[Rfam]
RNA sequence: AUUGUAGAAGUCAGGUCAUUGUAGAAGCGUGCUUGUCGCGACCCCUGCCAGCCCUUUUCAGGACUGCAAUUCUACA
Numbered sequence: 001a002u003u004g005u006a007g008a009a010g011u012c013a014g015g016u017c018a019u020u021g022u023a024g025a026a027g028c029g030u031g032c033u034u035g036u037c038g039c040g041a042c043c044c045c046u047g048c049c050a051g052c053c054c055u056u057u058u059c060a061g062g063a064c065u066g067c068a069a070u071u072c073u074a075c076a
Base pairs, nucleotide, nucleotide: 014044015043016041017040020076021075022074023073024072025071026070027039028038029037049066050065051064053062054061055060

Shown here is a 76-nucleotide RNA sequence from Parnassius apollo, a member of the family "Mammalian CPEB3 ribozyme". The organism belongs to Parnassius, within Eukaryota.